Overview:
The family of this 114-nucleotide RNA from Nitrosomonas sp. Nm58 is "Group II catalytic intron D1-D4-2". NCBI's taxonomy places the organism under Bacteria, Pseudomonadati, Pseudomonadota, Nitrosomonadales, Nitrosomonas.
RNA sequence: GAGGGUGGCCCCUCGCACUCGGCUUGCAGGGGCAGGUUGCAAACCACCAUGAGCGGCUCUGGUCAAGAGCCUGGGUCGUGAGCGUUAUGGAAAAGGUGCUUUAAUGCAUCAGGU
Numbered sequence: 001g002a003g004g005g006u007g008g009c010c011c012c013u014c015g016c017a018c019u020c021g022g023c024u025u026g027c028a029g030g031g032g033c034a035g036g037u038u039g040c041a042a043a044c045c046a047c048c049a050u051g052a053g054c055g056g057c058u059c060u061g062g063u064c065a066a067g068a069g070c071c072u073g074g075g076u077c078g079u080g081a082g083c084g085u086u087a088u089g090g091a092a093a094a095g096g097u098g099c100u101u102u103a104a105u106g107c108a109u110c111a112g113g114u
Base pairs, nucleotide, nucleotide: 001014002013003012004011005010015040016039017038019036020035022033023032024031025030045113047090048089049088050087051086052085053079054078056076057075058074061071062070063069095110096109097108098107099106
From the family's description: Group II introns are found in rRNA, tRNA and mRNA of organelles in fungi, plants and protists, and also in mRNA in bacteria. Gene Ontology term of the family: Group II intron splicing.